[Rfam]
RNA sequence: UAAAAGGGUCAAUGUAUUUUUAUACAAAUAACAUUUGAAACGUAAAAAUUUUAAAUGAUAUUCGGAAUCGUCAUCAAGAGAUUUCGUUGAUAUAAUUUUUGGUAUCACCGGGCGGGUUAUAUCCUUAGAUUAAUCCGUCCUU
Number, nucleotide and partner (000 for none) at each position: 001u000002a000003a000004a000005a000006g000007g000008g091009u090010c089011a088012a087013u026014g025015u024016a023017u022018u000019u000020u000021u000022a017023u016024a015025c014026a013027a062028a061029u060030a059031a000032c057033a056034u055035u054036u053037g052038a051039a050040a049041c000042g000043u000044a000045a000046a000047a000048a000049u040050u039051u038052u037053a036054a035055a034056u033057g032058a000059u030060a029061u028062u027063c086064g085065g084066a083067a082068u081069c080070g000071u000072c000073a000074u000075c000076a000077a000078g000079a000080g069081a068082u067083u066084u065085c064086g063087u012088u011089g010090a009091u008092a000093u000094a000095a000096u000097u000098u000099u000100u000101g000102g000103u000104a000105u000106c000107a000108c000109c000110g140111g139112g138113c137114g000115g136116g135117u000118u133119a000120u000121a131122u000123c000124c128125u000126u000127a000128g124129a000130u000131u121132a000133a118134u000135c116136c115137g113138u112139c111140c110141u000142u000